Rfam assigns this 136-nucleotide sequence from Thermoflavimicrobium daqui to the family "FMN riboswitch aptamer (RFN element)". Pairs were carried over by alignment from the consensus structure, which is taken from published work. Rfam describes the family as follows. The RFN element is a highly conserved domain that is found frequently in the 5'-untranslated regions of prokaryotic mRNAs that encode for flavin mononucleotide (FMN) biosynthesis and transport proteins. This element is a metabolite-dependent riboswitch that directly binds FMN in the absence of proteins. The match comes from Rfam's covariance-model search (115 bits).

RNA sequence: AUGAUCCUUCGGGGCAGGGUGAAAUUCCCGACCGGCGGUGAUGGCAAAUUGCCUUAGUCCGUGACCCGCUACUCUAGCGGUGGAUUCGGUGAAAAUCCGAAGCCGACAGUAACAGUCUGGAUGGGAGAAGGAUGAC
Numbered sequence: 001a002u003g004a005u006c007c008u009u010c011g012g013g014g015c016a017g018g019g020u021g022a023a024a025u026u027c028c029c030g031a032c033c034g035g036c037g038g039u040g041a042u043g044g045c046a047a048a049u050u051g052c053c054u055u056a057g058u059c060c061g062u063g064a065c066c067c068g069c070u071a072c073u074c075u076a077g078c079g080g081u082g083g084a085u086u087c088g089g090u091g092a093a094a095a096u097c098c099g100a101a102g103c104c105g106a107c108a109g110u111a112a113c114a115g116u117c118u119g120g121a122u123g124g125g126a127g128a129a130g131g132a133u134g135a136c
Base pairs, nucleotide, nucleotide: 004133005132006131007130008129009128010127017029018028019027031116032115033105034104035062036061037060038059057103058102066080067079085101086100087099088098089097107119108118109117